[Rfam]
RNA sequence: CUUCAGCGAGCCGAGCCGCAGCGGCCGGUCCUCGGGCCGGUUGCGGCCGUAGGUGGCCAGCAGGGCCUGGGCCUC
Number, nucleotide and partner (000 for none) at each position: 001c000002u000003u000004c000005a000006g000007c000008g000009a000010g000011c000012c000013g000014a000015g025016c024017c023018g000019c000020a000021g000022c000023g017024g016025c015026c000027g000028g000029u000030c000031c071032u070033c069034g000035g000036g000037c000038c065039g000040g000041u000042u000043g000044c000045g058046g000047c056048c055049g054050u000051a000052g000053g000054u049055g048056g047057c000058c045059a000060g000061c000062a000063g000064g000065g038066c000067c000068u000069g033070g032071g031072c000073c000074u000075c000
RNA: ASpks TB sRNA